[Rfam]
RNA sequence: GUUUGAGUGAUGACUUCACAAAUUGUCGGAUACCCCUUCACUCCUUUUGAGUGAGAACUGUGGUCUGACAAAC
Numbered sequence: 001g002u003u004u005g006a007g008u009g010a011u012g013a014c015u016u017c018a019c020a021a022a023u024u025g026u027c028g029g030a031u032a033c034c035c036c037u038u039c040a041c042u043c044c045u046u047u048u049g050a051g052u053g054a055g056a057a058c059u060g061u062g063g064u065c066u067g068a069c070a071a072a073c
Stems, first nucleotide, its partner, number of pairs: 001073005
RNA: Small nucleolar RNA SNORD101